[Rfam]
RNA sequence: ACUCUAGUAUUAGCACCUAUCCAGAUGUGUUGAGGUGGAUUUGAGUGUAAAUUAGUUUAAGUUACACCCCAAUCCACCUCAAUACAUGUGGAUUAGGGUCAAUACUAGA
Numbered sequence: 001a002c003u004c005u006a007g008u009a010u011u012a013g014c015a016c017c018u019a020u021c022c023a024g025a026u027g028u029g030u031u032g033a034g035g036u037g038g039a040u041u042u043g044a045g046u047g048u049a050a051a052u053u054a055g056u057u058u059a060a061g062u063u064a065c066a067c068c069c070c071a072a073u074c075c076a077c078c079u080c081a082a083u084a085c086a087u088g089u090g091g092a093u094u095a096g097g098g099u100c101a102a103u104a105c106u107a108g109a
Stems, first nucleotide, its partner, number of pairs: 004108008013099002016096001019093005025087008035077007043069001045067003
RNA: MIR5565 microRNA precursor family